This 290-nucleotide sequence from Helicobacter cynogastricus belongs to the Rfam family "5' ureB small RNA". Rfam links the family to the GO term negative regulation of gene expression.
RNA sequence: CAGUAGGAAUUUGUUGGGGGGAAAUAAAGUGGAUGUGAGUAUCAAUACCGCCAGCUGUAACAAUAAGCCCUUCGGCCGCUAGUGCUUCAGUAGCAGGACCUACACAAAGAUUGUUGUGUACACCAUCUUGAAUGUCUUUGUUGCCCGCUUUACCAAUGCCAGCAAUUUUGCCAUCUUUAAUGCCAAUGUCAGCUUUGUAAAUACCGCUGUAAUCUACAAUCAAGGCAUUGGUAAUAACCAAAUCUAACUCUUGAGUGCUAGGACUAUUAGUUUGGCCCAUCCCAUCACGG
Numbered sequence: 001c002a003g004u005a006g007g008a009a010u011u012u013g014u015u016g017g018g019g020g021g022a023a024a025u026a027a028a029g030u031g032g033a034u035g036u037g038a039g040u041a042u043c044a045a046u047a048c049c050g051c052c053a054g055c056u057g058u059a060a061c062a063a064u065a066a067g068c069c070c071u072u073c074g075g076c077c078g079c080u081a082g083u084g085c086u087u088c089a090g091u092a093g094c095a096g097g098a099c100c101u102a103c104a105c106a107a108a109g110a111u112u113g114u115u116g117u118g119u120a121c122a123c124c125a126u127c128u129u130g131a132a133u134g135u136c137u138u139u140g141u142u143g144c145c146c147g148c149u150u151u152a153c154c155a156a157u158g159c160c161a162g163c164a165a166u167u168u169u170g171c172c173a174u175c176u177u178u179a180a181u182g183c184c185a186a187u188g189u190c191a192g193c194u195u196u197g198u199a200a201a202u203a204c205c206g207c208u209g210u211a212a213u214c215u216a217c218a219a220u221c222a223a224g225g226c227a228u229u230g231g232u233a234a235u236a237a238c239c240a241a242a243u244c245u246a247a248c249u250c251u252u253g254a255g256u257g258c259u260a261g262g263a264c265u266a267u268u269a270g271u272u273u274g275g276c277c278c279a280u281c282c283c284a285u286c287a288c289g290g
Stems, first nucleotide, its partner, number of pairs: 001290001003288001006286002011165007018076001021073003030053003034050002037048001039046002057069001078153001081150002084148002090144007097136003105130001107129005113123002170276004177270006184262001192226006206215001229260003237252001240251001242249001
Pairs were carried over by alignment from the consensus structure, which was predicted with mfold. Taxonomically the source falls in Helicobacter (Bacteria, Pseudomonadati, Epsilonproteobacteria, Helicobacteraceae). It is one of the family's seed sequences.